[Rfam]
Shown here is a 596-nucleotide part of an RNA from Candidatus Methanomethylophilus sp. 1R26, a member of the family "Archaeal large subunit ribosomal RNA". The family is grouped with related families in Rfam's "LSU clan". Pairs were carried over by alignment from the consensus structure, which is taken from published work. It scores 2645 bits against the family's covariance model. The literature on the family includes a 2001 paper in Science by Yusupov et al., "Crystal structure of the ribosome at 5.5 A resolution".
RNA sequence: UUGCUACGCCGUAUGGGGGAUGGUUCGGCUAGAGAACUGAUGAAGGUCGUGUCAAGCUGCGAUAAGCGUCGGGAAGGUGCAAGAAGCCUAUGAUCCGACGAUCACCUAAUGGGACUUCCUAUUCUUCGGAAUUGUCAGUAAUGACAGGGAACGCGGGGGAUUGAAGCAUCUUAGUACCCGCAGGAAAAGAAAUCAACCGAGAUACCGCUAGUAAAGGCGAUCGAACGCGGCAUAGAACAAACUGAAUCCCCAUGUGAAAGCAUGGGGAGAUGUGGUGUGGACCCAUUUACUCCUUGGGCAGAAAUAUACGAAGUUAGUUGGAAAACUACGCCAUAGAGGGUGAUAGCCCCUUAGUAGAAUGUCUGUACGGAGAUUGAUGGAUGUCCAGAGUAACGUGAGUUGGAUAUCUCGCGUGAAGAUGGGGGACACUUGCCUCCAAUUCUAAAUAUUACUCUAGUCCGAUAGUGCAGUAGUAGCGUGAGCGAAAUCUGAAAAGUACCCUUAACGGGAGAUGAAAAGACCUGAAACCAUACGGUUAUAGAUUUAUACGGCAUGAAAGGGAAGAAGCCAGCAAUGGUGGACCAGUGUUGUAUAGU
Numbered sequence: 001u002u003g004c005u006a007c008g009c010c011g012u013a014u015g016g017g018g019g020a021u022g023g024u025u026c027g028g029c030u031a032g033a034g035a036a037c038u039g040a041u042g043a044a045g046g047u048c049g050u051g052u053c054a055a056g057c058u059g060c061g062a063u064a065a066g067c068g069u070c071g072g073g074a075a076g077g078u079g080c081a082a083g084a085a086g087c088c089u090a091u092g093a094u095c096c097g098a099c100g101a102u103c104a105c106c107u108a109a110u111g112g113g114a115c116u117u118c119c120u121a122u123u124c125u126u127c128g129g130a131a132u133u134g135u136c137a138g139u140a141a142u143g144a145c146a147g148g149g150a151a152c153g154c155g156g157g158g159g160a161u162u163g164a165a166g167c168a169u170c171u172u173a174g175u176a177c178c179c180g181c182a183g184g185a186a187a188a189g190a191a192a193u194c195a196a197c198c199g200a201g202a203u204a205c206c207g208c209u210a211g212u213a214a215a216g217g218c219g220a221u222c223g224a225a226c227g228c229g230g231c232a233u234a235g236a237a238c239a240a241a242c243u244g245a246a247u248c249c250c251c252a253u254g255u256g257a258a259a260g261c262a263u264g265g266g267g268a269g270a271u272g273u274g275g276u277g278u279g280g281a282c283c284c285a286u287u288u289a290c291u292c293c294u295u296g297g298g299c300a301g302a303a304a305u306a307u308a309c310g311a312a313g314u315u316a317g318u319u320g321g322a323a324a325a326c327u328a329c330g331c332c333a334u335a336g337a338g339g340g341u342g343a344u345a346g347c348c349c350c351u352u353a354g355u356a357g358a359a360u361g362u363c364u365g366u367a368c369g370g371a372g373a374u375u376g377a378u379g380g381a382u383g384u385c386c387a388g389a390g391u392a393a394c395g396u397g398a399g400u401u402g403g404a405u406a407u408c409u410c411g412c413g414u415g416a417a418g419a420u421g422g423g424g425g426a427c428a429c430u431u432g433c434c435u436c437c438a439a440u441u442c443u444a445a446a447u448a449u450u451a452c453u454c455u456a457g458u459c460c461g462a463u464a465g466u467g468c469a470g471u472a473g474u475a476g477c478g479u480g481a482g483c484g485a486a487a488u489c490u491g492a493a494a495a496g497u498a499c500c501c502u503u504a505a506c507g508g509g510a511g512a513u514g515a516a517a518a519g520a521c522c523u524g525a526a527a528c529c530a531u532a533c534g535g536u537u538a539u540a541g542a543u544u545u546a547u548a549c550g551g552c553a554u555g556a557a558a559g560g561g562a563a564g565a566a567g568c569c570a571g572c573a574a575u576g577g578u579g580g581a582c583c584a585g586u587g588u589u590g591u592a593u594a595g596u
Stems, first nucleotide, its partner, number of pairs: 008536009022522001023489001027460002029457006035450002044107004048061003067100006076088003111120003134145004152183001153181005163170002193200002205230004215221001234443004242275003252263004283380004290372004307356003313329001315328004332336001338350003393414007421437005476483002545594010559583002567578004